[Rfam]
Annotation:
The record is a 237-nucleotide RNA sequence from Dethiosulfatibacter aminovorans, which matches "Group II catalytic intron D1-D4-6" in Rfam. Taxonomically the source falls in Dethiosulfatibacter aminovorans (Bacteria, Bacillati, Bacillota, Tissierellia).
RNA sequence: GGAAACCUGCUGAGGUAAGGUCUAGCCAACCGCCUCGUACCGAGUCCUUGGAACCGAAGUGGUGACAUUAGGUUUAAGCGUAGGACAGGGAGCAACCGAGCCGAAACGCAAGUGAAGUGAUAGAGCUGGGAAAUGAUUAUCUAGAGGGAUUAGGUCGAUGCGCUCGUAUACGUAGCAGACAAUACUGUUUGAAUCGAUAUGGCAAUGAGUCAAAUGGCUACCCCCGAUCGGAGAGCU
Number, nucleotide and partner (000 for none) at each position: 001g000002g000003a000004a000005a000006c000007c000008u000009g000010c000011u000012g036013a035014g034015g033016u000017a000018a000019g031020g030021u029022c000023u205024a000025g203026c202027c000028a000029a021030c020031c019032g000033c015034c014035u013036c012037g000038u091039a000040c089041c088042g000043a000044g086045u000046c084047c083048u082049u080050g079051g075052a074053a073054c072055c071056g000057a069058a068059g000060u067061g066062g000063u000064g000065a000066c061067a060068u058069u057070a000071g055072g054073u053074u052075u051076a000077a000078g000079c050080g049081u000082a048083g047084g046085a000086c044087a000088g041089g040090g000091a038092g000093c000094a000095a000096c000097c000098g000099a000100g000101c000102c000103g000104a000105a000106a000107c000108g000109c000110a000111a000112g000113u000114g000115a000116a000117g000118u000119g000120a000121u000122a000123g229124a000125g228126c000127u226128g225129g224130g223131a000132a000133a000134u000135g000136a000137u000138u000139a000140u000141c000142u000143a000144g000145a000146g000147g222148g221149a000150u000151u220152a219153g218154g180155u179156c178157g000158a000159u174160g173161c172162g171163c000164u000165c000166g000167u000168a000169u000170a000171c162172g161173u160174a159175g000176c000177a000178g156179a155180c154181a000182a000183u000184a000185c217186u216187g215188u214189u213190u212191g211192a210193a000194u208195c207196g000197a000198u000199a000200u000201g000202g026203c025204a000205a023206u000207g195208a194209g000210u192211c191212a190213a189214a188215u187216g186217g185218c153219u152220a151221c148222c147223c130224c129225c128226g127227a000228u125229c123230g000231g000232a000233g000234a000235g000236c000237u000